[Rfam]
This 121-nucleotide RNA sequence from Metabacillus lacus belongs to the Rfam family "ylbH leader". Taxonomically the source falls in Metabacillus (Bacteria, Bacillati, Bacilli, Caryophanales). The match comes from Rfam's covariance-model search (108 bits). Rfam classes the family as a cis-regulatory leader. On this family, see Barrick et al., Proc Natl Acad Sci U S A 2004: "New RNA motifs suggest an expanded scope for riboswitches in bacterial genetic control". Rfam describes the family as follows. This family is a putative regulatory RNA structure that is found upstream of the ylbH gene in B. subtilis and related low GC Gram-positive bacteria.
Nucleotides: 121
Base pairs, nucleotide, nucleotide: 011034012033013032014031015030016029017028019026035069036068037067038066039065081118082117083116084115086114087113088112089111091110092109093108094107095106
Number, partner (000 for none) and nucleotide at each position: 001000a002000u003000a004000a005000a006000a007000a008000a009000a010000a011034c012033c013032c014031c015030g016029c017028c018000g019026g020000c021000u022000u023000u024000c025000g026019c027000a028017g029016g030015c031014g032013g033012g034011g035069u036068c037067c038066u039065u040000c041000u042000c043000a044000u045000c046000c047000u048000u049000u050000a051000c052000a053000g054000g055000a056000u057000a058000g059000a060000a061000g062000g063000c064000a065039a066038a067037g068036g069035g070000a071000g072000a073000g074000g075000a076000g077000a078000a079000a080000c081118c082117g083116g084115a085000g086114g087113a088112a089111g090000a091110a092109c093108u094107u095106a096000u097000g098000g099000g100000g101000a102000a103000a104000c105000g106095u107094a108093a109092g110091u111089c112088u113087u114086c115084u116083c117082c118081g119000c120000g121000g